This 98-nucleotide sequence from Streptococcus gordonii belongs to the Rfam family "Purine riboswitch aptamer". Pairs were carried over by alignment from the consensus structure, which is taken from published work.
RNA sequence: AAAUUAUAAUAAAGAAAAGCUUAUUUAUCUUGCUAAUGAUUGGGGCAAGGUCUCUACAAGAUGCCAAACAUCUAACAAUAAGUGAGUCUUACAAGUUU
Dot-bracket structure: ..................(((((((...((((((.........)))))).........(((((.....)))))...)))))))...............
The organism belongs to Streptococcus gordonii str. Challis, within Bacteria.